[Rfam]
RNA sequence: GAGUUAGUGUUACGUGGCAAGGUUAACCCGUGAGGGGGAGCCGUAGCGAAAGCGAGUCUGAAUAGGGCGUCGAGUCGCGUGAUCUAGACCCGAAGCGAAGUGAUCUACCCAUGGCCAGGUUGAAGCGCGGGUAAGACCGCGUGGAGGACCGAACCCACUUAGGUUGAAAACUGAGGGGAUGAGCUGUGGGUAGGGGUGAAAGGCCAAUCAAACUUCGUGAUAGCUGGUU
Number, nucleotide and partner (000 for none) at each position: 001g000002a000003g000004u000005u086006a085007g084008u000009g083010u082011u081012a080013c079014g078015u077016g076017g075018c074019a000020a000021g042022g041023u040024u039025a000026a000027c036028c035029c034030g000031u000032g000033a000034g029035g028036g027037g000038g000039a024040g023041c022042c021043g000044u000045a000046g053047c052048g000049a000050a000051a000052g047053c046054g000055a000056g068057u067058c066059u065060g000061a000062a000063u000064a000065g059066g058067g057068c056069g000070u000071c000072g000073a000074g018075u017076c016077g015078c014079g013080u012081g011082a010083u009084c007085u006086a005087g000088a000089c227090c226091c000092g224093a000094a000095g000096c217097g216098a215099a214100g213101u212102g000103a000104u000105c193106u192107a191108c190109c189110c188111a187112u186113g185114g184115c183116c181117a000118g150119g149120u148121u147122g000123a000124a000125g142126c141127g140128c139129g138130g137131g000132u000133a000134a000135g000136a000137c130138c129139g128140c127141g126142u125143g000144g000145a000146g000147g121148a120149c119150c118151g000152a000153a000154c178155c177156c176157a000158c175159u174160u173161a172162g171163g000164u000165u000166g000167a000168a000169a000170a000171c162172u161173g160174a159175g158176g156177g155178g154179a000180u000181g116182a000183g115184c114185u113186g112187u111188g110189g109190g108191u107192a106193g105194g000195g205196g204197u203198g000199a000200a000201a000202g000203g197204c196205c195206a000207a000208u000209c000210a000211a000212a101213c100214u099215u098216c097217g096218u000219g000220a000221u000222a000223g000224c092225u000226g090227g089228u000229u000
Description
Bacterial large subunit ribosomal RNA: a 229-nucleotide part of an RNA from Jatrophihabitans endophyticus. Pairs were carried over by alignment from the consensus structure, which is taken from published work. NCBI's taxonomy places the organism under Bacteria, Bacillati, Actinomycetota, Actinomycetes, Jatrophihabitans. Rfam links the family to the GO terms structural constituent of ribosome and ribosome.